A member of the RNA family "Small nucleolar RNA SNORD103/SNORD85" from Machaerirhynchus nigripectus, 88 nucleotides long. The source organism's lineage runs through Eukaryota, Eumetazoa, Vertebrata, Teleostomi and Machaerirhynchus. By type it is a C/D-box small nucleolar RNA. Gene Ontology terms of the family: nucleolus and RNA processing. Rfam 15.1 lists 1,349 matches to the family in 595 species. For this family Rfam cites "RNomics: an experimental approach that identifies 201 candidates for novel, small, non-messenger RNAs in mouse" (Huttenhofer et al., EMBO J, 2001).
RNA sequence: CCUGGCAGUGAUGCCACCCUUGCCCUCGCUGAGAGCUCUGUUCUGUGAGGAGCCUCUCGCUCCCUGUGCUCGGAGCAGCUGAGCCAGG
Numbered sequence: 001c002c003u004g005g006c007a008g009u010g011a012u013g014c015c016a017c018c019c020u021u022g023c024c025c026u027c028g029c030u031g032a033g034a035g036c037u038c039u040g041u042u043c044u045g046u047g048a049g050g051a052g053c054c055u056c057u058c059g060c061u062c063c064c065u066g067u068g069c070u071c072g073g074a075g076c077a078g079c080u081g082a083g084c085c086a087g088g
Stems, first nucleotide, its partner, number of pairs: 001088006